[Rfam]
RNA: Small nucleolar RNA SNORD73
RNA sequence: AAUGAAUGAUGACAAAAUGUUUCGGUCCCAGAUGAUGUGGAAUGAUUCUGUUUUGCUUUUUUCUGACAUU
Number, nucleotide and partner (000 for none) at each position: 001a070002a069003u068004g067005a000006a000007u000008g000009a000010u000011g000012a000013c000014a000015a000016a000017a000018u000019g000020u000021u000022u000023c000024g000025g000026u000027c000028c000029c000030a000031g000032a000033u000034g000035a000036u000037g000038u000039g000040g000041a000042a000043u000044g000045a000046u000047u000048c000049u000050g000051u000052u000053u000054u000055g000056c000057u000058u000059u000060u000061u000062u000063c000064u000065g000066a000067c004068a003069u002070u001